[Rfam]
Lysine riboswitch aptamer: a 198-nucleotide sequence from Paenibacillus faecis. The literature on the family includes a 2003 paper in Cell by Mandal et al., "Riboswitches Control Fundamental Biochemical Pathways in Bacillus subtilis and Other Bacteria". Lineage of the source: Bacteria > Bacillota > Caryophanales > Paenibacillaceae > Paenibacillus.
RNA sequence: AGGUGAGGUAGAGGUCGCGACUGUGAAGAGUACACUGGAGGAGGCGUUUGAAGCCGCCCGUGAUUCCUGUGGAAAGGCGCCGUCGCCGAAGCAUCGCCGCAUGGCUUCUGUACCGCGGCGUGCUGGGGCUGUUACCGAAAGGGACAGAACUGUCACGGUUAUUCUUCACCGGAAGAACCGUGUUGAGCUAUCUUGCAG
Numbered sequence: 001a002g003g004u005g006a007g008g009u010a011g012a013g014g015u016c017g018c019g020a021c022u023g024u025g026a027a028g029a030g031u032a033c034a035c036u037g038g039a040g041g042a043g044g045c046g047u048u049u050g051a052a053g054c055c056g057c058c059c060g061u062g063a064u065u066c067c068u069g070u071g072g073a074a075a076g077g078c079g080c081c082g083u084c085g086c087c088g089a090a091g092c093a094u095c096g097c098c099g100c101a102u103g104g105c106u107u108c109u110g111u112a113c114c115g116c117g118g119c120g121u122g123c124u125g126g127g128g129c130u131g132u133u134a135c136c137g138a139a140a141g142g143g144a145c146a147g148a149a150c151u152g153u154c155a156c157g158g159u160u161a162u163u164c165u166u167c168a169c170c171g172g173a174a175g176a177a178c179c180g181u182g183u184u185g186a187g188c189u190a191u192c193u194u195g196c197a198g
Base pairs, nucleotide, nucleotide: 006193007192008191009190010189011188017086018085019084020083021082023080024079025078033071034070035069037067038066039065040064090124091123092122093121094120096119097118098117099116100115125151126150129147130146131145132144133143135141154182155181156180157179158178159177
Dot-bracket structure: .....((((((.....(((((.(((.......(((.((((.......................)))).)))......))).)))))...(((((.(((((..............))))))))))((..(((((.(.....).)))))..))..((((((.................)))))).....)))))).....